[Rfam]
RNA: Streptococcus sRNA SpF01
RNA sequence: AUUUUAUUAAAUAAGAUAGGCUGUAAAGCCUUGAAAUUAAGCACUUUGGGGCGUUUUCCCCUAGUGCUUUUUGAUUUCU
Numbered sequence: 001a002u003u004u005u006a007u008u009a010a011a012u013a014a015g016a017u018a019g020g021c022u023g024u025a026a027a028g029c030c031u032u033g034a035a036a037u038u039a040a041g042c043a044c045u046u047u048g049g050g051g052c053g054u055u056u057u058c059c060c061c062u063a064g065u066g067c068u069u070u071u072u073g074a075u076u077u078c079u
Base pairs, nucleotide, nucleotide: 018079019078020077031074034071039069040068041067042066043065044064045063048060049059050058051057